[Rfam]
The record is a 52-nucleotide RNA sequence from Lentivirus humimdef1, which matches "HIV Ribosomal frameshift signal" in Rfam. The base pairs follow the family's consensus structure, which is taken from published work. The family's RNA type in Rfam is frameshift element. Rfam's curators put it in the seed alignment. NCBI's taxonomy places the organism under Viruses, Artverviricota, Orthoretrovirinae, Lentivirus, Lentivirus humimdef1. Rfam describes the family as follows. This family represents the HIV Ribosomal frameshift signal. HIV uses a system called -1 ribosomal frameshifting to produce the required ratio of Gag and Gag-Pol polyproteins. The stem-loop structure of the frameshift signal is thought to impede the ribosome and cause slippage in the 5' direction, this causes the -1 frameshift and translation then continues in the new frame.
Nucleotides: 052
Base pairs, nucleotide, nucleotide: 008052009051010050011049012048013047015042016041017040018039019038020037021036022035023034024033025032
Number, partner (000 for none) and nucleotide at each position: 001000u002000u003000u004000u005000u006000u007000a008052g009051g010050g011049a012048a013047a014000a015042u016041u017040u018039g019038g020037c021036c022035u023034u024033c025032c026000u027000c028000c029000a030000a031000g032025g033024g034023g035022a036021g037020g038019c039018c040017g041016g042015g043000g044000a045000a046000c047013u048012u049011u050010c051009u052008u